[Rfam]
RNA sequence: UUCUUCUUCGUGCGGCAGCCAGAACUAUUACCGUGUUGCUUGUCUAUUUUCGUAAUCCCUACGGAUUGGCGAGCGUCAAGUUCCUGGCGAGAACGAUAUCCUUCUUUUGGAGGAAAUUAGGCCAUCUUAACGCCCUUUUGUUAGUUUGUAGCGUUUUAGUAUCUGUAUGGAUAUUAUAAUUUGGAAUUAGCAAGGGCUGGUGGGCCAAACAUUU
Numbered sequence: 001u002u003c004u005u006c007u008u009c010g011u012g013c014g015g016c017a018g019c020c021a022g023a024a025c026u027a028u029u030a031c032c033g034u035g036u037u038g039c040u041u042g043u044c045u046a047u048u049u050u051c052g053u054a055a056u057c058c059c060u061a062c063g064g065a066u067u068g069g070c071g072a073g074c075g076u077c078a079a080g081u082u083c084c085u086g087g088c089g090a091g092a093a094c095g096a097u098a099u100c101c102u103u104c105u106u107u108u109g110g111a112g113g114a115a116a117u118u119a120g121g122c123c124a125u126c127u128u129a130a131c132g133c134c135c136u137u138u139u140g141u142u143a144g145u146u147u148g149u150a151g152c153g154u155u156u157u158a159g160u161a162u163c164u165g166u167a168u169g170g171a172u173a174u175u176a177u178a179a180u181u182u183g184g185a186a187u188u189a190g191c192a193a194g195g196g197c198u199g200g201u202g203g204g205c206c207a208a209a210c211a212u213u214u
Stems, first nucleotide, its partner, number of pairs: 009015001018088003022083004038074007046066004126204004132197005139192008154179002157176002160173005
The record is a 214-nucleotide RNA sequence from Dujonia railenensis, which matches "Small nucleolar RNA snR35" in Rfam. It scores 56 bits against the family's covariance model. The family's consensus secondary structure was predicted with WAR. By type it is an H/ACA-box small nucleolar RNA. Its family is annotated with RNA processing and nucleolus in the Gene Ontology.